[Rfam]
Nucleotides: 126
Stems, first nucleotide, its partner, number of pairs: 003053005014041010078107004083102004
Number, partner (000 for none) and nucleotide at each position: 001000a002000a003053g004052c005051a006050g007049g008000a009000a010000a011000g012000u013000u014041a015040u016039a017038a018037u019036a020035u021034a022033g023032c024000u025000g026000u027000g028000c029000a030000g031000u032023g033022c034021u035020g036019u037018a038017u039016u040015a041014u042000c043000g044000u045000u046000c047000c048000c049007c050006c051005u052004g053003c054000u055000u056000a057000a058000a059000u060000a061000a062000a063000a064000u065000g066000c067000u068000u069000c070000c071000u072000u073000c074000u075000a076000u077000c078107c079106c080105u081104a082000c083102u084101u085100g086099c087000u088000c089000u090000g091000a092000u093000c094000c095000c096000a097000c098000a099086g100085c101084a102083a103000g104081u105080a106079g107078g108000g109000a110000c111000g112000c113000u114000u115000g116000g117000u118000u119000u120000c121000a122000u123000a124000c125000a126000u